[Rfam]
Nucleotides: 165
Base pairs, nucleotide, nucleotide: 001165002164004162005161006160007159008158012154013153014152015151016150017149018148019147020146021145022144023143025141026140027139030135031134032133033132034131035130036129037128038127039126040125041124042123044122045121067094070091071090072089073088074087075086076085
Number, partner (000 for none) and nucleotide at each position: 001165a002164a003000a004162c005161a006160g007159u008158c009000c010000c011000c012154u013153a014152u015151g016150u017149u018148u019147u020146g021145a022144u023143u024000c025141u026140u027139u028000a029000a030135c031134a032133a033132u034131u035130u036129u037128g038127g039126a040125c041124c042123c043000c044122c045121a046000a047000g048000g049000c050000a051000a052000a053000a054000a055000a056000a057000a058000a059000a060000a061000a062000u063000u064000g065000a066000c067094a068000a069000g070091u071090g072089g073088c074087a075086c076085c077000u078000c079000a080000c081000u082000u083000u084000g085076g086075g087074u088073g089072c090071c091070a092000c093000g094067u095000c096000a097000u098000c099000g100000u101000u102000g103000a104000c105000c106000g107000a108000g109000u110000c111000a112000a113000c114000a115000a116000u117000g118000g119000a120000u121045u122044g123042g124041g125040g126039u127038c128037c129036a130035a131034a132033a133032u134031u135030g136000g137000c138000a139027a140026a141025a142000a143023a144022a145021u146020c147019a148018a149017a150016a151015c152014a153013u154012a155000g156000g157000g158008g159007g160006c161005u162004g163000u164002u165001u
The family of this 165-nucleotide RNA sequence from Medicago truncatula is "MIR2619 microRNA precursor family".
The base pairs follow the family's consensus structure, which was predicted with RNAalifold.